[Rfam]
Shown here is a 74-nucleotide RNA sequence from Ornithorhynchus anatinus, a member of the family "mir-1421 microRNA precursor family".
RNA sequence: CGGUGUGAGGAGGCCGUAUCUCCUGCGGAGUGAUGGUGGAAUCUGCUGCGAAGUGUUCGACCUCCCCUCACAGC
Numbered sequence: 001c002g003g004u005g006u007g008a009g010g011a012g013g014c015c016g017u018a019u020c021u022c023c024u025g026c027g028g029a030g031u032g033a034u035g036g037u038g039g040a041a042u043c044u045g046c047u048g049c050g051a052a053g054u055g056u057u058c059g060a061c062c063u064c065c066c067c068u069c070a071c072a073g074c
Stems, first nucleotide, its partner, number of pairs: 003071003007067001009065005015059002018056002021053001024050004
Annotation:
Taxonomically the source falls in Ornithorhynchus (Eukaryota, Metazoa, Dipnotetrapodomorpha, Amniota).